[Rfam]
Nucleotides: 084
Stems, first nucleotide, its partner, number of pairs: 002084004
Number, partner (000 for none) and nucleotide at each position: 001000g002084u003083u004082u005081c006000a007000a008000u009000g010000a011000u012000g013000a014000u015000a016000u017000u018000g019000c020000u021000a022000u023000u024000u025000a026000c027000c028000u029000u030000g031000g032000g033000a034000c035000a036000c037000c038000u039000a040000u041000g042000a043000a044000a045000u046000a047000u048000u049000g050000u051000g052000a053000u054000u055000a056000g057000u058000g059000u060000g061000a062000a063000u064000u065000g066000u067000u068000u069000u070000g071000u072000a073000u074000a075000a076000c077000u078000g079000a080000u081005g082004a083003a084002a